[Rfam]
RNA: c-di-GMP-I-GGC riboswitch aptamer
Organism: Vibrio agarilyticus
RNA sequence: CACGCACAGGGCAAACCAUUCGAAAGAGUGGGACGCAAAGCUUCCGGCCUUCAGUUUUCUUAACGAAAAACAGGUAGCGGGGUUGCCGAUG
Numbered sequence: 001c002a003c004g005c006a007c008a009g010g011g012c013a014a015a016c017c018a019u020u021c022g023a024a025a026g027a028g029u030g031g032g033a034c035g036c037a038a039a040g041c042u043u044c045c046g047g048c049c050u051u052c053a054g055u056u057u058u059c060u061u062a063a064c065g066a067a068a069a070a071c072a073g074g075u076a077g078c079g080g081g082g083u084u085g086c087c088g089a090u091g
Base pairs, nucleotide, nucleotide: 001091003088004087011036012035016031017030018029019028020027021026034077039084040083041082042081044080045079046078047075048074049073